Source information: This 312-nucleotide sequence from Halorientalis sp. IM1011 belongs to the Rfam family "Archaeal signal recognition particle RNA". Rfam classes the family as a non-coding RNA gene. Gene Ontology terms of the family: signal recognition particle, plasma membrane targeting and SRP-dependent cotranslational protein targeting to membrane, signal sequence recognition. The literature on the family includes a 2002 paper in Curr Opin Struct Biol by Wild et al., "Towards the structure of the mammalian signal recognition particle". The source organism's lineage runs through Archaea, Methanobacteriati, Halobacteria, Haloarculaceae and Halorientalis.
RNA sequence: GAGUGGACUAGGUCGGGCAGUUAGGCCCUGCCCUGAACCCGCGAUAUGGUCUUUAGCGGGGACCGAAGCUCGGGGGCGUCCGGUCAGACGGACGCGGGCCCCGCAAGCCAACGUCGAAGCCUCGUCCUGCGGGGGCGGCGGUCCCCACUGGCUCGCCUGCAGGGGCGAUCCGGUGCGGUUAAUCGGGGACACCCCGUCAGGCGCGGAAGCGAGCAGCGGAUCCCCGGACACCCGUCGCUCGUAGGGUCGCGGGGUGGAGGAGGCACGCGGGAUUACCCGCGCCCGAACGCCGGGCAAUCCCGAGGUCCAUUC
Number, nucleotide and partner (000 for none) at each position: 001g312002a311003g310004u309005g308006g307007a306008c305009u304010a000011g064012g063013u062014c061015g033016g032017g031018c030019a029020g028021u000022u000023a000024g000025g000026c000027c000028c020029u019030g018031c017032c016033c015034u000035g000036a000037a000038c060039c059040c058041g057042c056043g000044a054045u000046a000047u000048g000049g000050u000051c000052u000053u000054u044055a000056g042057c041058g040059g039060g038061g014062a013063c012064c011065g000066a000067a000068g000069c000070u303071c302072g301073g300074g299075g298076g000077c000078g295079u294080c293081c292082g290083g000084u000085c000086a000087g000088a000089c285090g284091g283092a000093c281094g280095c279096g278097g277098g276099c000100c271101c270102c269103g268104c267105a000106a000107g264108c263109c262110a000111a000112c259113g000114u257115c000116g000117a000118a000119g255120c254121c253122u252123c251124g250125u249126c245127c244128u243129g242130c241131g240132g239133g238134g236135g235136c234137g233138g232139c000140g229141g180142u000143c178144c177145c000146c175147a174148c173149u172150g171151g170152c000153u168154c167155g166156c165157c164158u163159g000160c000161a000162g000163g158164g157165g156166c155167g154168a153169u000170c151171c150172g149173g148174u147175g146176c000177g144178g143179u000180u141181a000182a000183u227184c226185g225186g224187g223188g222189a221190c000191a000192c000193c000194c219195c218196g217197u216198c000199a000200g000201g000202c211203g210204c209205g000206g000207a000208a000209g204210c203211g202212a000213g000214c000215a000216g197217c196218g195219g194220a000221u189222c188223c187224c186225c185226g184227g183228a000229c140230a000231c000232c138233c137234g136235u135236c134237g000238c133239u132240c131241g130242u129243a128244g127245g126246g000247u000248c000249g125250c124251g123252g122253g121254g120255u119256g000257g114258a000259g112260g000261a000262g109263g108264c107265a000266c000267g104268c103269g102270g101271g100272a000273u000274u000275a000276c098277c097278c096279g095280c094281g093282c000283c091284c090285g089286a000287a000288c000289g000290c082291c000292g081293g080294g079295c078296a000297a000298u075299c074300c073301c072302g071303a070304g009305g008306u007307c006308c005309a004310u003311u002312c001